[Rfam]
RNA sequence: CACCGAGUCCGCGGUCCCGGCCAUCACCGGGACCAGGUGCAAAAGGGA
Numbered sequence: 001c002a003c004c005g006a007g008u009c010c011g012c013g014g015u016c017c018c019g020g021c022c023a024u025c026a027c028c029g030g031g032a033c034c035a036g037g038u039g040c041a042a043a044a045g046g047g048a
Stems, first nucleotide, its partner, number of pairs: 013034008
The record is a 48-nucleotide RNA sequence from Streptomyces sp. LaPpAH-165, which matches "raiA-hairpin RNA" in Rfam. Pairs were carried over by alignment from the consensus structure, which is taken from published work. Taxonomically the source falls in Streptomyces (Bacteria, Bacillati, Actinomycetes, Streptomycetaceae).